[Rfam]
RNA sequence: CAGUUUUCUGCUUCAACAGUGUUUGGACGAACCGG
Number, nucleotide and partner (000 for none) at each position: 001c035002a000003g033004u000005u031006u000007u030008c029009u000010g028011c000012u027013u026014c025015a024016a023017c021018a000019g000020u000021g017022u000023u016024u015025g014026g013027a012028c010029g008030a007031a005032c000033c003034g000035g001
RNA: Iron response element I
Organism: Suricata suricatta